[Rfam]
RNA sequence: CCGCCCGAGAGGCGCUGCAACGGACUUCCACGUCCGCCACGCUCGGCCGGGUUCGAUGACGCAAGGGCGCCUCCUGAGA
Numbered sequence: 001c002c003g004c005c006c007g008a009g010a011g012g013c014g015c016u017g018c019a020a021c022g023g024a025c026u027u028c029c030a031c032g033u034c035c036g037c038c039a040c041g042c043u044c045g046g047c048c049g050g051g052u053u054c055g056a057u058g059a060c061g062c063a064a065g066g067g068c069g070c071c072u073c074c075u076g077a078g079a
Stems, first nucleotide, its partner, number of pairs: 002049002005046004021036005
Rfam assigns this 79-nucleotide RNA from Actinoplanes sp. OR16 to the family "SAH (S-adenosyl-L-homocysteine) riboswitch aptamer". The family has 52 seed sequences and 1,354 matches in Rfam 15.1. On this family, see Wang et al., Mol Cell 2008: "Riboswitches that sense S-adenosylhomocysteine and activate genes involved in coenzyme recycling". Its family is annotated with S-adenosylhomocysteine metabolic process and regulation of gene expression in the Gene Ontology. The organism belongs to Actinoplanes, within Bacteria. The base pairs follow the family's consensus structure, which is taken from published work. The match comes from Rfam's covariance-model search (39 bits).